[Rfam]
RNA: U5 spliceosomal RNA
RNA sequence: AGCCGUGUGAUGAGCACAUAGCGAACUAUUCUUUCGCCUUUUACUAAAGAAUACCGUGUGUGCGUCACUUAUAACGGCAUACGUUAAUUUUUGAAAGAGCUCUCUUGAUUGAGGGCU
Numbered sequence: 001a002g003c004c005g006u007g008u009g010a011u012g013a014g015c016a017c018a019u020a021g022c023g024a025a026c027u028a029u030u031c032u033u034u035c036g037c038c039u040u041u042u043a044c045u046a047a048a049g050a051a052u053a054c055c056g057u058g059u060g061u062g063c064g065u066c067a068c069u070u071a072u073a074a075c076g077g078c079a080u081a082c083g084u085u086a087a088u089u090u091u092u093g094a095a096a097g098a099g100c101u102c103u104c105u106u107g108a109u110u111g112a113g114g115g116c117u
Stems, first nucleotide, its partner, number of pairs: 003077004008067005014061005027053008095117001099116006